[Rfam]
RNA sequence: CUAAAUACGAUGAACAAGAGUAGUAGUUAACAAUCUUUAGUUAUAGAGAACUACAGUUUGGUGAAAUGUAGUACAAAGAAUUAAUGAACGUGCUUGGGAGUAUAAUUAUCGAAUUUUGAGGUAAUUACGUAUAUCUUGCGUUAAAAGAUUUGAGUGCUCUUUUUUAAAGAGAAUUAAGGUGGUACCGCGUUAAUAACGUCCUUUUU
Numbered sequence: 001c002u003a004a005a006u007a008c009g010a011u012g013a014a015c016a017a018g019a020g021u022a023g024u025a026g027u028u029a030a031c032a033a034u035c036u037u038u039a040g041u042u043a044u045a046g047a048g049a050a051c052u053a054c055a056g057u058u059u060g061g062u063g064a065a066a067u068g069u070a071g072u073a074c075a076a077a078g079a080a081u082u083a084a085u086g087a088a089c090g091u092g093c094u095u096g097g098g099a100g101u102a103u104a105a106u107u108a109u110c111g112a113a114u115u116u117u118g119a120g121g122u123a124a125u126u127a128c129g130u131a132u133a134u135c136u137u138g139c140g141u142u143a144a145a146a147g148a149u150u151u152g153a154g155u156g157c158u159c160u161u162u163u164u165u166a167a168a169g170a171g172a173a174u175u176a177a178g179g180u181g182g183u184a185c186c187g188c189g190u191u192a193a194u195a196a197c198g199u200c201c202u203u204u205u206u
Stems, first nucleotide, its partner, number of pairs: 007101002015096004026085005040074002050072006104126007128140003157171006176203004187199005